[Rfam]
RNA: Small nucleolar RNA SNORD60
Organism: Pleuronectes platessa
RNA sequence: AGCCACUGAUGACAAACCUUACUUUUCUGACACCUCGUAUGAGAGCGGCUCUCUAGCUCCUGAUUCUAACGCUGAUCUGAGGCUC
Numbered sequence: 001a002g003c004c005a006c007u008g009a010u011g012a013c014a015a016a017c018c019u020u021a022c023u024u025u026u027c028u029g030a031c032a033c034c035u036c037g038u039a040u041g042a043g044a045g046c047g048g049c050u051c052u053c054u055a056g057c058u059c060c061u062g063a064u065u066c067u068a069a070c071g072c073u074g075a076u077c078u079g080a081g082g083c084u085c
Stems, first nucleotide, its partner, number of pairs: 001084004045059001048057002